[Rfam]
RNA sequence: ACGGCUGCGGGCGGCAGGGAACAGGUGCCCGCAGCACCAGACAGAACACCGUGUCCCGGAACAUCGGGGCACUUCAGGGCGUU
Numbered sequence: 001a002c003g004g005c006u007g008c009g010g011g012c013g014g015c016a017g018g019g020a021a022c023a024g025g026u027g028c029c030c031g032c033a034g035c036a037c038c039a040g041a042c043a044g045a046a047c048a049c050c051g052u053g054u055c056c057c058g059g060a061a062c063a064u065c066g067g068g069g070c071a072c073u074u075c076a077g078g079g080c081g082u083u
Stems, first nucleotide, its partner, number of pairs: 004035010015024001051072008

The record is an 83-nucleotide RNA from Streptomyces sp. e14, which matches "nrdJ RNA" in Rfam. Pairs were carried over by alignment from the consensus structure, which is taken from published work.